[Rfam]
RNA sequence: GUAGUCGGAUUCGCAUCAAUCCACAUGUGUUGGUAUGGGUUGGAGUGGAACUUAAACUAAAUUCCACUCCAAUCCACUUCAACACAUAUGAAUUGAGGUGAAUCCGACA
Numbered sequence: 001g002u003a004g005u006c007g008g009a010u011u012c013g014c015a016u017c018a019a020u021c022c023a024c025a026u027g028u029g030u031u032g033g034u035a036u037g038g039g040u041u042g043g044a045g046u047g048g049a050a051c052u053u054a055a056a057c058u059a060a061a062u063u064c065c066a067c068u069c070c071a072a073u074c075c076a077c078u079u080c081a082a083c084a085c086a087u088a089u090g091a092a093u094u095g096a097g098g099u100g101a102a103u104c105c106g107a108c109a
Stems, first nucleotide, its partner, number of pairs: 004108011016096005022090002025087008036076008045067003
Dot-bracket structure: ...(((((((((((.(((((.((.((((((((...((((((((.(((.................))).))))))))...)))))))).)).))))).))))))))))).